[Rfam]
RNA sequence: UACAGAAGCGUGGAUUUUCACAUACCAAUCGGAAGUGUCUGUGCAAAUCUAUCGCAACUGUACA
Numbered sequence: 001u002a003c004a005g006a007a008g009c010g011u012g013g014a015u016u017u018u019c020a021c022a023u024a025c026c027a028a029u030c031g032g033a034a035g036u037g038u039c040u041g042u043g044c045a046a047a048u049c050u051a052u053c054g055c056a057a058c059u060g061u062a063c064a
Stems, first nucleotide, its partner, number of pairs: 001062005008055002010052008019043004024038002026035001
mir-254 microRNA precursor family: a 64-nucleotide RNA sequence from Caenorhabditis remanei. The organism belongs to Caenorhabditis, within Eukaryota.